[Rfam]
RNA sequence: AUAAUAGGCGGAGCAACACUUGUGCGUGAAGUGGGUCAGGGGAGGAAUCCAGCAGCCCUAAGCGAUUUUCGGGUGUGUGCUCUUUUUUUGUUGACUUU
Numbered sequence: 001a002u003a004a005u006a007g008g009c010g011g012a013g014c015a016a017c018a019c020u021u022g023u024g025c026g027u028g029a030a031g032u033g034g035g036u037c038a039g040g041g042g043a044g045g046a047a048u049c050c051a052g053c054a055g056c057c058c059u060a061a062g063c064g065a066u067u068u069u070c071g072g073g074u075g076u077g078u079g080c081u082c083u084u085u086u087u088u089u090g091u092u093g094a095c096u097u098u
Base pairs, nucleotide, nucleotide: 003092004091005090006089007088008085010083011082012081013080014077016076017075018074019073020072021071022067025064026063027062033058034057035056036055041050042049043048
This 98-nucleotide sequence from Streptococcus pyogenes belongs to the Rfam family "Bacterial small signal recognition particle RNA".
The family is grouped with related families in Rfam's "SRP clan".
NCBI's taxonomy places the organism under Bacteria, Bacillati, Bacillota, Streptococcus, Streptococcus pyogenes serotype M1.
It is one of the family's seed sequences.
Rfam classes the family as a non-coding RNA gene.